[Rfam]
RNA sequence: UGGUAGAUGCACCCUGACUAUCCCCAGAGAGUUACUCUUUGGGGGUUUUUUAU
Dot-bracket structure: .(((......))).......(((((((((((...)))))))))))........

This 53-nucleotide sequence from Phormidesmis priestleyi belongs to the Rfam family "Nitrogen stress-induced RNA 1". Lineage of the source: Bacteria > Cyanobacteriota > Leptolyngbyaceae > Phormidesmis > Phormidesmis priestleyi.